[Rfam]
RNA sequence: UCCCGUCGCCUGUGCGGGUCAUCAUGGGCACCUCCCUGUUGGACUGCGCCGGGCCUUGCGCCCGGCGUUUUUU
Numbered sequence: 001u002c003c004c005g006u007c008g009c010c011u012g013u014g015c016g017g018g019u020c021a022u023c024a025u026g027g028g029c030a031c032c033u034c035c036c037u038g039u040u041g042g043a044c045u046g047c048g049c050c051g052g053g054c055c056u057u058g059c060g061c062c063c064g065g066c067g068u069u070u071u072u073u
Stems, first nucleotide, its partner, number of pairs: 008029007047067008
The family of this 73-nucleotide sequence from Thetidibacter halocola is "Singlet oxygen resistance RNA X".
It is annotated as a small RNA.
The family has 8 seed sequences and 528 matches in Rfam 15.1.
SorX (RSs2461)like SorY is a singlet oxygen induced sRNA that counteracts oxidative stress by targeting mRNA for a transporter in Rhodobacter.